[Rfam]
Rfam assigns this 75-nucleotide RNA to the family "RAGATH-18 RNA".
RNA sequence: CUUGUGGAGAGUAUACAAAGAUGUAAUUAGUAUUUAGAGUUAUCUAAUACGAAAGCAUGCUCGAUGAAACAAGAA
Numbered sequence: 001c002u003u004g005u006g007g008a009g010a011g012u013a014u015a016c017a018a019a020g021a022u023g024u025a026a027u028u029a030g031u032a033u034u035u036a037g038a039g040u041u042a043u044c045u046a047a048u049a050c051g052a053a054a055g056c057a058u059g060c061u062c063g064a065u066g067a068a069a070c071a072a073g074a075a
Base pairs, nucleotide, nucleotide: 001073002072003071004070005069009062010061011060012059013058022057023056024055030050031049032048035046036045